[Rfam]
RNA sequence: AUUUUCAGGUAAUCGCGGUUUGUUUGAACAAGCUGAGGAAAGUCCAUGCUCGCACAAGCUGCGAUGCUUGUAGUGUUCGUGCUUAGCGAAACCAUAAGCUAAGGUACUCUUUUAGAGUAACGGCAGAAAAAACAGCUAAGGUCUUUGGCUAUGCUGGAGUAUUCUUGAAAGUGCCACAGUGACGAAGCGUUUGGAGAAAUCCAAACGGUGGAACGCGGUAAACCCCUCGAGCGAGCAACCCAAACAAUGGUAGGGGCGCUUUUCUAAGUAGGAAUUGAACGAAAAGAAGAGCCAGUGAAAACUGGAGAUAGAUGAUCACCACUGAAGUAGAUUCUCCCUGAGUCUAUUUCGGUACAGAACAUGGCUUAUAGAA
Dot-bracket structure: ...(((([[[.[[[.((((((........))))))....(((.((((((((((((((((......)))))).....(((.(((((((..........))))))(((((((...)))))).)((.((((....((((...(((.....)))..)))).....)))).....(((((............((((((((....)))))))).........)))..))))).))))))))...(((...........)))...(((((((...................)))))))(((((....)))))........]]].]]].(((((((((((((.....))))))))))))).......)))))))).).)))

Bacterial RNase P class B: a 373-nucleotide RNA from Enterococcus sp. PFB1-1. About the family: Ribonuclease P (RNase P) is a ubiquitous endoribonuclease, found in archaea, bacteria and eukarya as well as chloroplasts and mitochondria. Its best characterised activity is the generation of mature 5'-ends of tRNAs by cleaving the 5'-leader elements of precursor-tRNAs. Cellular RNase Ps are ribonucleoproteins. RNA from bacterial RNase Ps retains its catalytic activity in the absence of the protein subunit, i.e. it is a ribozyme. Its Rfam clan is "RNaseP clan".